[Rfam]
RNA: Small nucleolar RNA snoR111
Organism: Capsicum annuum
RNA sequence: CUGAUCGAAUGAUGAACAGUUAUUUUGAUGUGUUUCGUCAUUUUUAUGUGAAUUUAUUGGAGGCAAAGUAAUAUUAUUGGAGAGAUAUCGUUUCGAUCGUCAUUUUUUUUUUUACCAUUGACGAUUCGAUUGUUGCUCGUCUACAU
Numbered sequence: 001c002u003g004a005u006c007g008a009a010u011g012a013u014g015a016a017c018a019g020u021u022a023u024u025u026u027g028a029u030g031u032g033u034u035u036c037g038u039c040a041u042u043u044u045u046a047u048g049u050g051a052a053u054u055u056a057u058u059g060g061a062g063g064c065a066a067a068g069u070a071a072u073a074u075u076a077u078u079g080g081a082g083a084g085a086u087a088u089c090g091u092u093u094c095g096a097u098c099g100u101c102a103u104u105u106u107u108u109u110u111u112u113u114a115c116c117a118u119u120g121a122c123g124a125u126u127c128g129a130u131u132g133u134u135g136c137u138c139g140u141c142u143a144c145a146u
Stems, first nucleotide, its partner, number of pairs: 004047002007044001009041008079142002082138003087130004096125007104117001